[Rfam]
Nucleotides: 206
Base pairs, nucleotide, nucleotide: 001206002205003204004203006201008199009198012197013196014195015191016190017189018188019187028177029176030175031041033091034090035089036088037087038086039085050084051083058076060074062072063071064070103170104169105168106167107166108121109120110119111118112117125163126162127161128160132156133155138149139148140147
Number, partner (000 for none) and nucleotide at each position: 001206a002205a003204g004203g005000u006201u007000c008199g009198g010000g011000u012197c013196u014195g015191u016190g017189g018188u019187u020000g021000a022000a023000a024000a025000c026000c027000g028177a029176u030175g031041c032000c033091a034090g035089u036088c037087g038086c039085a040000g041031g042000c043000a044000a045000a046000a047000c048000g049000g050084u051083c052000c053000a054000c055000g056000u057000a058076a059000g060074c061000u062072g063071g064070g065000g066000a067000a068000a069000u070064u071063c072062c073000c074060g075000g076058u077000g078000a079000g080000c081000a082000c083051g084050g085039u086038g087037c088036g089035g090034u091033u092000u093000a094000g095000a096000a097000g098000u099000a100000a101000g102000u103170c104169c105168g106167g107166c108121c109120g110119g111118a112117c113000g114000a115000c116000a117112g118111u119110c120109c121108g122000a123000g124000a125163g126162a127161g128160c129000g130000c131000a132156g133155u134000g135000g136000g137000g138149g139148c140147c141000a142000g143000u144000a145000a146000a147140g148139g149138c150000u151000a152000u153000g154000a155133g156132c157000a158000a159000a160128g161127c162126u163125c164000c165000u166107g167106c168105c169104g170103g171000c172000g173000a174000g175030u176029g177028u178000g179000g180000g181000g182000u183000c184000a185000a186000a187019a188018a189017c190016c191015a192000g193000g194000u195014c196013a197012g198009c199008c200000a201006a202000u203004c204003c205002u206001u
The family of this 206-nucleotide sequence is "raiA RNA". The sequence is in the family's curated seed alignment. Pairs were carried over by alignment from the consensus structure, which is taken from published work. By type it is a riboswitch.